[Rfam]
RNA: Glycine riboswitch aptamer
Organism: Croceibacterium salegens
RNA sequence: GGCCGGACCGCGAGAGAGUGCAGCGGGCUUGCCCGAGGCCGCCGAAGGAGCAACCGCCCCGGAAUCUCUCAGGCGAAUGGAUCGCGGGACCGGU
Numbered sequence: 001g002g003c004c005g006g007a008c009c010g011c012g013a014g015a016g017a018g019u020g021c022a023g024c025g026g027g028c029u030u031g032c033c034c035g036a037g038g039c040c041g042c043c044g045a046a047g048g049a050g051c052a053a054c055c056g057c058c059c060c061g062g063a064a065u066c067u068c069u070c071a072g073g074c075g076a077a078u079g080g081a082u083c084g085c086g087g088g089a090c091c092g093g094u
Base pairs, nucleotide, nucleotide: 008087009086010085011084012083013082020039021038041074042073043072044070045069048068049067050066054062055061